[Rfam]
RNA sequence: CAUUGAACAUGAUGAAAAUAAUGCGUGGGUGAUGAUCUCCAAUUCAUGUGAUGAAACAUAUCUACACGCUACGUUCUUUCUGAUUCACAA
Numbered sequence: 001c002a003u004u005g006a007a008c009a010u011g012a013u014g015a016a017a018a019u020a021a022u023g024c025g026u027g028g029g030u031g032a033u034g035a036u037c038u039c040c041a042a043u044u045c046a047u048g049u050g051a052u053g054a055a056a057c058a059u060a061u062c063u064a065c066a067c068g069c070u071a072c073g074u075u076c077u078u079u080c081u082g083a084u085u086c087a088c089a090a
Stems, first nucleotide, its partner, number of pairs: 004087004
Shown here is a 90-nucleotide RNA sequence from Punica granatum, a member of the family "Small nucleolar RNA R32/R81/Z41".
The base pairs follow the family's consensus structure, which was predicted with PFOLD.
The family has 6 seed sequences and 238 matches in Rfam 15.1.